[Rfam]
RNA sequence: UAUCUCUGAAAAGCCGGAGGAACCGGCACCGAAGGAGCAACGACCCGUAUUGACGGGAAGGAAUCUCUCAGGUUUGGAAACAGAGGAAGAUGA
Numbered sequence: 001u002a003u004c005u006c007u008g009a010a011a012a013g014c015c016g017g018a019g020g021a022a023c024c025g026g027c028a029c030c031g032a033a034g035g036a037g038c039a040a041c042g043a044c045c046c047g048u049a050u051u052g053a054c055g056g057g058a059a060g061g062a063a064u065c066u067c068u069c070a071g072g073u074u075u076g077g078a079a080a081c082a083g084a085g086g087a088a089g090a091u092g093a
Stems, first nucleotide, its partner, number of pairs: 001088001003086006014026004028073003031069002035067003041060001
RNA: Glycine riboswitch aptamer
Organism: Ruminiclostridium cellobioparum